[Rfam]
Nucleotides: 085
Base pairs, nucleotide, nucleotide: 001085002084003083004082005081
Number, partner (000 for none) and nucleotide at each position: 001085a002084g003083g004082c005081u006000a007000a008000u009000g010000a011000u012000g013000a014000u015000a016000a017000a018000u019000a020000u021000u022000a023000a024000u025000a026000u027000c028000u029000u030000a031000g032000c033000g034000g035000a036000u037000u038000u039000c040000a041000g042000u043000g044000a045000g046000a047000u048000g049000u050000a051000a052000a053000u054000c055000a056000a057000u058000g059000a060000u061000c062000u063000g064000u065000u066000u067000g068000u069000u070000a071000c072000a073000c074000a075000c076000a077000c078000u079000g080000a081005a082004g083003c084002c085001u